This 98-nucleotide RNA sequence from Clostridium paraputrificum belongs to the Rfam family "Purine riboswitch aptamer". The family's consensus secondary structure is taken from published work. Riboswitches are metabolite binding domains within certain messenger RNAs that serve as precision sensors for their corresponding targets. Allosteric rearrangement of mRNA structure is mediated by ligand binding, and this results in modulation of gene expression. A class of riboswitches that selectively recognises guanine and becomes saturated at concentrations as low as 5 nM. In Bacillus subtilis, this mRNA motif is located on at least five separate transcriptional units that together encode 17 genes that are mostly involved in purine transport and purine nucleotide biosynthesis.
[Rfam]
RNA sequence: AUAAGUAGCACAUUUACAACUCGUAUAUCCCCUGAAUAAGGCAGGGAGUAUCUACCGGAAGCCGUAAAUUUCCGACUAUGGGUGAAUUUGAUAUAACU
Numbered sequence: 001a002u003a004a005g006u007a008g009c010a011c012a013u014u015u016a017c018a019a020c021u022c023g024u025a026u027a028u029c030c031c032c033u034g035a036a037u038a039a040g041g042c043a044g045g046g047a048g049u050a051u052c053u054a055c056c057g058g059a060a061g062c063c064g065u066a067a068a069u070u071u072c073c074g075a076c077u078a079u080g081g082g083u084g085a086a087u088u089u090g091a092u093a094u095a096a097c098u
Base pairs, nucleotide, nucleotide: 019083020082021081022080023079024078025077030046031045032044033043034042056074057073058072059071060070061069